[Rfam]
The family of this 156-nucleotide RNA from Populus alba is "MIR2912 microRNA precursor family". NCBI's taxonomy places the organism under Eukaryota, Streptophyta, fabids, Malpighiales, Populus. The family has 2 seed sequences and 15,051 matches in Rfam 15.1. Its family is annotated with RISC complex and miRNA-mediated post-transcriptional gene silencing in the Gene Ontology.
RNA sequence: UCUAGAACUCGAGAUAUGGGUUGAACACUGAACAGUGUUUGAGCUGCAUGACAGAUUCGGACUUCUCCAUUGUUGCUUUAAUUUGGACUUGAAAAUGGCCUUUUUAUAUCUUAGAUUCCAUAUGAAAGUUGUAGGCCUAUGUAUUACCUUUCCAUC
Numbered sequence: 001u002c003u004a005g006a007a008c009u010c011g012a013g014a015u016a017u018g019g020g021u022u023g024a025a026c027a028c029u030g031a032a033c034a035g036u037g038u039u040u041g042a043g044c045u046g047c048a049u050g051a052c053a054g055a056u057u058c059g060g061a062c063u064u065c066u067c068c069a070u071u072g073u074u075g076c077u078u079u080a081a082u083u084u085g086g087a088c089u090u091g092a093a094a095a096u097g098g099c100c101u102u103u104u105u106a107u108a109u110c111u112u113a114g115a116u117u118c119c120a121u122a123u124g125a126a127a128g129u130u131g132u133a134g135g136c137c138u139a140u141g142u143a144u145u146a147c148c149u150u151u152c153c154a155u156c
Stems, first nucleotide, its partner, number of pairs: 003154001005152003009146001011145002014142007021134003025130001027129003035123003041119001043117001045115001048112001050110002054105002059100002062098002072088003
The match comes from Rfam's covariance-model search (108 bits).